[Rfam]
RNA sequence: AUCCCAGUCCUAGGAGCGCCACUUGGUGGUGUUGCGGCUGCCCUAGCGCAUGGCGUUAGGGCAGUCGAGGAUGGGAUCAAUUAUGCAACAGGGAAUUUACCCGGUUGCUCUUU
Dot-bracket structure: (((((.(((...((.((.((....))..)).)).(((((((((((((((...)))))))))))))))..)))))))).......(((((.(((......))).))))).....
Numbered sequence: 001a002u003c004c005c006a007g008u009c010c011u012a013g014g015a016g017c018g019c020c021a022c023u024u025g026g027u028g029g030u031g032u033u034g035c036g037g038c039u040g041c042c043c044u045a046g047c048g049c050a051u052g053g054c055g056u057u058a059g060g061g062c063a064g065u066c067g068a069g070g071a072u073g074g075g076a077u078c079a080a081u082u083a084u085g086c087a088a089c090a091g092g093g094a095a096u097u098u099a100c101c102c103g104g105u106u107g108c109u110c111u112u113u
Stems, first nucleotide, its partner, number of pairs: 001077005007072003013033002016030002019026002035067015085108005091102003

This 113-nucleotide RNA sequence from Orthohepacivirus hominis belongs to the Rfam family "J750 non-coding RNA (containing SLSL761 and SL783)". The organism belongs to Hepatitis C virus genotype 6, within Viruses.